[Rfam]
RNA: RNA Staph. aureus E (RoxS)
RNA sequence: GUGAAGUGAAUCACAAUCAAACAAACUUAUACCCCUUUGUUUGACCGUGAAAAAUUUCUCCCAUCCCCUUUGUUGUCUUUAUGACAAAGAAAAAGGACUCGGCAUCCCCCGAGUCCUUUUUC
Numbered sequence: 001g002u003g004a005a006g007u008g009a010a011u012c013a014c015a016a017u018c019a020a021a022c023a024a025a026c027u028u029a030u031a032c033c034c035c036u037u038u039g040u041u042u043g044a045c046c047g048u049g050a051a052a053a054a055u056u057u058c059u060c061c062c063a064u065c066c067c068c069u070u071u072g073u074u075g076u077c078u079u080u081a082u083g084a085c086a087a088a089g090a091a092a093a094a095g096g097a098c099u100c101g102g103c104a105u106c107c108c109c110c111g112a113g114u115c116c117u118u119u120u121u122c
Stems, first nucleotide, its partner, number of pairs: 003058005011050004018043008074086001077083001092119011